RNA sequence: GCCCGUUCCGAGGGGGGCUCCGAUGAGGAGCUGAGAUACCGCUUCCUCGCGGGUCAGGCGGCAAGACUGCCGGGCCAGUGCGAGACCGCGGUGACCCUUUGAACCUGAUCCGGGUCAUGCCGGCGAAGGGACAGGGAUGAAUAAACAGA
Dot-bracket structure: .....((((.((((..(((((.....)))))......(((((.............................................)))))..)))).....(((...((((......))))...)))....))))............

A member of the RNA family "TPP riboswitch aptamer (THI element)" from Rhodopseudomonas faecalis, 149 nucleotides long. Taxonomically the source falls in Rhodopseudomonas (Bacteria, Pseudomonadati, Alphaproteobacteria, Hyphomicrobiales). About the family: Vitamin B(1) in its active form thiamin pyrophosphate (TPP) is an essential coenzyme that is synthesised by coupling of pyrimidine and thiazole moieties in bacteria.